[Rfam]
Shown here is an 84-nucleotide RNA sequence from Escherichia coli, a member of the family "Enterobacterial sRNA STnc230". NCBI's taxonomy places the organism under Bacteria, Pseudomonadati, Pseudomonadota, Enterobacteriaceae, Escherichia.
Nucleotides: 084
Stems, first nucleotide, its partner, number of pairs: 048076004052071001054069004
Number, partner (000 for none) and nucleotide at each position: 001000a002000c003000a004000u005000c006000a007000u008000c009000c010000u011000u012000g013000a014000u015000g016000a017000u018000u019000u020000a021000c022000u023000g024000a025000c026000g027000a028000g029000a030000a031000g032000c033000a034000c035000a036000a037000a038000g039000g040000a041000c042000a043000a044000u045000a046000a047000c048076a049075a050074a051073a052071g053000c054069c055068u056067c057066c058000g059000u060000g061000a062000a063000g064000c065000g066057g067056g068055a069054g070000a071052c072000u073051u074050u075049u076048u077000a078000a079000u080000a081000a082000g083000u084000u
Rfam's curators put it in the seed alignment.
By type it is a small RNA.